[Rfam]
RNA sequence: CACAAUGAUUUCUAGGGUUCCGUAAGCACUGCUUGGUCUGGUCCAAGAGAAAUCACAUAGCAUAUAUGCUAUGCCACGGAAGGAUAAAAGCCUGGGAGAU
Numbered sequence: 001c002a003c004a005a006u007g008a009u010u011u012c013u014a015g016g017g018u019u020c021c022g023u024a025a026g027c028a029c030u031g032c033u034u035g036g037u038c039u040g041g042u043c044c045a046a047g048a049g050a051a052a053u054c055a056c057a058u059a060g061c062a063u064a065u066a067u068g069c070u071a072u073g074c075c076a077c078g079g080a081a082g083g084a085u086a087a088a089a090g091c092c093u094g095g096g097a098g099a100u
Stems, first nucleotide, its partner, number of pairs: 007054006015044002020041002022038001023035005056073007075095001077098001081093003
RNA: Guanidine-I riboswitch aptamer